The family of this 77-nucleotide RNA from Microcebus murinus is "Small nucleolar RNA SNORD111". The source organism's lineage runs through Eukaryota, Euteleostomi, Sarcopterygii, Boreoeutheria and Microcebus. Its family is annotated with RNA processing and nucleolus in the Gene Ontology. On this family, see Galardi et al., Mol Cell Biol 2002: "Purified box C/D snoRNPs are able to reproduce site-specific 2'-O-methylation of target RNA in vitro". Rfam classes the family as a C/D-box small nucleolar RNA. The family's consensus secondary structure was predicted with RNAalifold.

RNA sequence: AAGCCUAAGUGAUGAUUCACAUUCAUGUCUCUUCUCUGAUAUAUUCUUGAAGAAAAUUCGGUGUAUCUGAUUGGCCU
Number, nucleotide and partner (000 for none) at each position: 001a077002a000003g075004c074005c073006u000007a000008a000009g000010u000011g000012a000013u000014g000015a000016u000017u000018c000019a000020c000021a000022u000023u000024c000025a000026u000027g000028u000029c000030u000031c000032u000033u000034c000035u000036c000037u000038g000039a000040u000041a000042u000043a000044u000045u000046c000047u000048u000049g000050a000051a000052g000053a000054a000055a000056a000057u000058u000059c000060g000061g000062u000063g000064u000065a000066u000067c000068u000069g000070a000071u000072u000073g005074g004075c003076c000077u001